[Rfam]
RNA: ABC transporter regulator
RNA sequence: GUGCACCAUCGUGAUGUGGUUAUUUCAAUCAUAAGGUUCUGAUUGGACAGGGCAAUAAUUUUAUUGCCCUUUUUAUUUU
Numbered sequence: 001g002u003g004c005a006c007c008a009u010c011g012u013g014a015u016g017u018g019g020u021u022a023u024u025u026c027a028a029u030c031a032u033a034a035g036g037u038u039c040u041g042a043u044u045g046g047a048c049a050g051g052g053c054a055a056u057a058a059u060u061u062u063a064u065u066g067c068c069c070u071u072u073u074u075a076u077u078u079u
Base pairs, nucleotide, nucleotide: 025046026045027044028043029042030041031040049070050069051068052067053066054065055064056063057062